A member of the RNA family "Small nucleolar SNORD12/SNORD106" from Balaeniceps rex, 91 nucleotides long. The family has 8 seed sequences and 2,264 matches in Rfam 15.1. It is annotated as a C/D-box small nucleolar RNA. Its family is annotated with nucleolus and RNA processing in the Gene Ontology.

RNA sequence: GCUGGUGUAAGCGGUGACAGAAUUUUUACCCCAUCAGAGCGACAGUGUUGAUUUGUCACUGUUCAAGCCAGAUCAUGUCUGAUGCACCAGC
Numbered sequence: 001g002c003u004g005g006u007g008u009a010a011g012c013g014g015u016g017a018c019a020g021a022a023u024u025u026u027u028a029c030c031c032c033a034u035c036a037g038a039g040c041g042a043c044a045g046u047g048u049u050g051a052u053u054u055g056u057c058a059c060u061g062u063u064c065a066a067g068c069c070a071g072a073u074c075a076u077g078u079c080u081g082a083u084g085c086a087c088c089a090g091c
Base pairs, nucleotide, nucleotide: 001091002090003089004088005087006086007085008084009083